[Rfam]
RNA sequence: AUCCUGCAAAGGCAAACCUUAUGAAAAUAAGAGACGCAAAGCCACGGGCCUAACGCAAUCGCUAUGGUAGCCGAGCCGCCAGG
Numbered sequence: 001a002u003c004c005u006g007c008a009a010a011g012g013c014a015a016a017c018c019u020u021a022u023g024a025a026a027a028u029a030a031g032a033g034a035c036g037c038a039a040a041g042c043c044a045c046g047g048g049c050c051u052a053a054c055g056c057a058a059u060c061g062c063u064a065u066g067g068u069a070g071c072c073g074a075g076c077c078g079c080c081a082g083g
Base pairs, nucleotide, nucleotide: 012037013036018031019030020029021028022027041076042075045073046072047071048068049067050066055062056061
c-di-GMP-I riboswitch aptamer: an 83-nucleotide RNA from Bacillus sp. Y1.
The base pairs follow the family's consensus structure, which is taken from published work.
The match comes from Rfam's covariance-model search (66 bits).